[Rfam]
RNA sequence: CCCAAGGGGUUCUUCGCGACGACCCCGUGAGGCGUCAGCCCAAUGUUCGCGUCCACUUUCCUCUCUUCAGGGAUGGACGCCCAUG
Dot-bracket structure: .....(((((...........)))))......................((((((....................)))))).....
Numbered sequence: 001c002c003c004a005a006g007g008g009g010u011u012c013u014u015c016g017c018g019a020c021g022a023c024c025c026c027g028u029g030a031g032g033c034g035u036c037a038g039c040c041c042a043a044u045g046u047u048c049g050c051g052u053c054c055a056c057u058u059u060c061c062u063c064u065c066u067u068c069a070g071g072g073a074u075g076g077a078c079g080c081c082c083a084u085g
Stems, first nucleotide, its partner, number of pairs: 006026005049080006
The record is an 85-nucleotide RNA sequence from Allobosea sp. RAC05, which matches "chrB-a RNA" in Rfam.
The family's consensus secondary structure is taken from published work.
It scores 63 bits against the family's covariance model.
The source organism's lineage runs through Bacteria, Pseudomonadati, Pseudomonadota, Hyphomicrobiales and Allobosea.